[Rfam]
RNA: FMN riboswitch aptamer (RFN element)
RNA sequence: GGAUUUCUUCGGGGCAGGGUGAAAUUCCCAACCGACGGUAACAAGGAGUAACUUGGAGUCCGUGACCCGUUGAUGUUGUAAUCAACGGCUGAACCAGUGUAAGUCUGGAUGGGAGAAGAAAUAA
Numbered sequence: 001g002g003a004u005u006u007c008u009u010c011g012g013g014g015c016a017g018g019g020u021g022a023a024a025u026u027c028c029c030a031a032c033c034g035a036c037g038g039u040a041a042c043a044a045g046g047a048g049u050a051a052c053u054u055g056g057a058g059u060c061c062g063u064g065a066c067c068c069g070u071u072g073a074u075g076u077u078g079u080a081a082u083c084a085a086c087g088g089c090u091g092a093a094c095c096a097g098u099g100u101a102a103g104u105c106u107g108g109a110u111g112g113g114a115g116a117a118g119a120a121a122u123a124a
Base pairs, nucleotide, nucleotide: 003122004121005120006119007118008117009116010115017029018028019027031104032103033091034090035063036062037061038060058089059088074087075086076085077084078083095107096106097105